[Rfam]
The record is a 60-nucleotide RNA sequence from Echeneis naucrates, which matches "mir-728 microRNA precursor family" in Rfam. It scores 76 bits against the family's covariance model. The organism belongs to Echeneis, within Eukaryota. The base pairs follow the family's consensus structure, which was predicted with RNAalifold.

RNA sequence: AAAUGUAGUAGACUAUAAGUAUACAUAAAACUCAAAGUAUACUAAGUAUACUACGUUUAC
Dot-bracket structure: (((((((((..(((...(((((((............))))))).)))..)))))))))..